[Rfam]
Rfam assigns this 416-nucleotide sequence from Bordetella sp. N to the family "Bacterial RNase P class A". The literature on the family includes a 1998 paper in Annu Rev Biochem by Frank and Pace, "Ribonuclease P: unity and diversity in a tRNA processing ribozyme". About the family: Ribonuclease P (RNase P) is a ubiquitous endoribonuclease, found in archaea, bacteria and eukarya as well as chloroplasts and mitochondria. The source organism's lineage runs through Bacteria, Pseudomonadota, Betaproteobacteria, Alcaligenaceae and Bordetella.

RNA sequence: AAGACGAAUCGGGCAAUCGCGGGACGCUCACGCGUUUCGAGGAAGGUCCGGACUCCAUAGGGCAGGGUAGCGGCUAACGGCCGUCCGUCGGGCAGGUGGCAACACCGGUCCGGCGAGGAACAGGGCCACAGAGACGAGUCUGCGAAGUGGGCGGAGGGCAACCUCCGCACAGGCACGGCCACUCCGUGUCGCGCCGGCUGGCAACAGCCGGCGGCAUCGCAGGGUGAAACGCGGCAACCUCUACCCGGAGCAACAUCAAAUAGGCAUGCGCACGGUCUUCGGACCUGGAAGGGCGGCUCCGUUCGAGCAUGCGGGUAGGUGGCUAGAUCCGGCCAGCAAUGGCCGGGCCAGAGGAAUGAUUGCCCACCGGGCUUACCCCCGGUGUACAGAAUCCGGCCCAUAGAUUCGUCUUGCCU
Numbered sequence: 001a002a003g004a005c006g007a008a009u010c011g012g013g014c015a016a017u018c019g020c021g022g023g024a025c026g027c028u029c030a031c032g033c034g035u036u037u038c039g040a041g042g043a044a045g046g047u048c049c050g051g052a053c054u055c056c057a058u059a060g061g062g063c064a065g066g067g068u069a070g071c072g073g074c075u076a077a078c079g080g081c082c083g084u085c086c087g088u089c090g091g092g093c094a095g096g097u098g099g100c101a102a103c104a105c106c107g108g109u110c111c112g113g114c115g116a117g118g119a120a121c122a123g124g125g126c127c128a129c130a131g132a133g134a135c136g137a138g139u140c141u142g143c144g145a146a147g148u149g150g151g152c153g154g155a156g157g158g159c160a161a162c163c164u165c166c167g168c169a170c171a172g173g174c175a176c177g178g179c180c181a182c183u184c185c186g187u188g189u190c191g192c193g194c195c196g197g198c199u200g201g202c203a204a205c206a207g208c209c210g211g212c213g214g215c216a217u218c219g220c221a222g223g224g225u226g227a228a229a230c231g232c233g234g235c236a237a238c239c240u241c242u243a244c245c246c247g248g249a250g251c252a253a254c255a256u257c258a259a260a261u262a263g264g265c266a267u268g269c270g271c272a273c274g275g276u277c278u279u280c281g282g283a284c285c286u287g288g289a290a291g292g293g294c295g296g297c298u299c300c301g302u303u304c305g306a307g308c309a310u311g312c313g314g315g316u317a318g319g320u321g322g323c324u325a326g327a328u329c330c331g332g333c334c335a336g337c338a339a340u341g342g343c344c345g346g347g348c349c350a351g352a353g354g355a356a357u358g359a360u361u362g363c364c365c366a367c368c369g370g371g372c373u374u375a376c377c378c379c380c381g382g383u384g385u386a387c388a389g390a391a392u393c394c395g396g397c398c399c400a401u402a403g404a405u406u407c408g409u410c411u412u413g414c415c416u
Stems, first nucleotide, its partner, number of pairs: 001412010011401001012364007020039008045398002048396005053250004060299004065246005070084005085117001086115008118241002123239002125235003140223002142220004147215002150212001254321004264312006291304004328347008